[Rfam]
RNA sequence: UGUGGAAGCUGACUGACUUGUGUGCAGGUGAAGUGUCUGCCCACGCUAUGAGGCUUCCUAUAGUAACUGGAGAUCUCUGUCUGGUUCUGUGCAGCCCUCGGAGCCGGAUCGUUCCCCUCCAUACAUC
Numbered sequence: 001u002g003u004g005g006a007a008g009c010u011g012a013c014u015g016a017c018u019u020g021u022g023u024g025c026a027g028g029u030g031a032a033g034u035g036u037c038u039g040c041c042c043a044c045g046c047u048a049u050g051a052g053g054c055u056u057c058c059u060a061u062a063g064u065a066a067c068u069g070g071a072g073a074u075c076u077c078u079g080u081c082u083g084g085u086u087c088u089g090u091g092c093a094g095c096c097c098u099c100g101g102a103g104c105c106g107g108a109u110c111g112u113u114c115c116c117c118u119c120c121a122u123a124c125a126u127c
Stems, first nucleotide, its partner, number of pairs: 004058003009052002019045004024040002069120004077111001079109003083105007
Dot-bracket structure: ...(((..((........((((.((.............)).)))).....))...)))..........((((....(.(((.(((((((.........))))))).))).).....)))).......
About this RNA: Rfam assigns this 127-nucleotide sequence from Eleutherodactylus coqui to the family "Small Cajal body specific RNA 3". Clan: SCARNA3 clan. Rfam classes the family as a small Cajal body RNA. It scores 72 bits against the family's covariance model. Rfam's curators write: scaRNAs are a specific class of small nuclear RNAs which localise to the Cajal bodies and guide the modification of RNA polymerase II transcribed spliceosomal RNAs U1, U2, U4, U5 and U12.